Source information:
This 82-nucleotide RNA from Hungatella hathewayi belongs to the Rfam family "ZMP/ZTP riboswitch aptamer (pfl RNA motif)". A search with the family's covariance model found it, with a score of 62 bits.

RNA sequence: GUAGAGACGUGCGACUGGCGGAUAAGUGGGAAACCACAGGGGAGCACGUAGUGGAAGACAGCCGACCGCCUGGGCACGAUUA
Dot-bracket structure: ...(..((((((..(([[[[[....((((....))))..))..))))))..)........(((..]]]]]..))).......